[Rfam]
RNA: ZMP/ZTP riboswitch aptamer (pfl RNA motif)
Nucleotides: 093
Base pairs, nucleotide, nucleotide: 003053004052005051006050007049008048009047010046011045012044015041016040017081018080019079020078026037027036028035029034070088071087072086073085074084
Number, partner (000 for none) and nucleotide at each position: 001000c002000a003053u004052u005051c006050u007049c008048c009047g010046g011045g012044u013000g014000a015041c016040u017081g018080g019079c020078g021000c022000a023000u024000a025000c026037g027036u028035g029034g030000a031000u032000g033000a034029c035028c036027a037026c038000g039000g040016g041015g042000a043000a044012g045011c046010c047009u048008g049007g050006a051005g052004a053003a054000g055000a056000g057000g058000a059000u060000a061000c062000c063000a064000a065000u066000g067000u068000a069000u070088c071087a072086g073085c074084c075000g076000c077000u078020c079019g080018c081017c082000u083000g084074g085073g086072c087071u088070g089000g090000g091000c092000a093000c